[Rfam]
RNA sequence: AGCUUUGCGCAGAGGCAGUGUCAUAGCCGAUGAGGUUCUACCGAGGCGUGACUAUUGCUAGUUGAAAACUUUUCCCAAUACCCCGCCCAGUCGUCGUGAAAUACCGUCGGCUGAGGCAAUUUUUGGGAACUCCUUCGGGAG
Dot-bracket structure: ...................(((((.(((.....(((...)))..))))))))................................(((((((((.((........)).)))))).)))............((((....))))